[Rfam]
RNA sequence: CCUCCUGUGAUGAUUUUAACAGCAUGACUUUCGUUCUUCUGAGUAUACUGAAGUCAACCCUCCUGUUCUGAGGAGG
Numbered sequence: 001c002c003u004c005c006u007g008u009g010a011u012g013a014u015u016u017u018a019a020c021a022g023c024a025u026g027a028c029u030u031u032c033g034u035u036c037u038u039c040u041g042a043g044u045a046u047a048c049u050g051a052a053g054u055c056a057a058c059c060c061u062c063c064u065g066u067u068c069u070g071a072g073g074a075g076g
Stems, first nucleotide, its partner, number of pairs: 001076003005072001

A member of the RNA family "Small nucleolar RNA SNORD59" from Anguilla anguilla, 76 nucleotides long. Pairs were carried over by alignment from the consensus structure, which was predicted with ILM. Lineage of the source: Eukaryota > Deuterostomia > Craniata > Neopterygii > Anguilla. On this family, see Galardi et al., Mol Cell Biol 2002: "Purified box C/D snoRNPs are able to reproduce site-specific 2'-O-methylation of target RNA in vitro". It scores 67 bits against the family's covariance model. The family has 24 seed sequences and 1,355 matches in Rfam 15.1.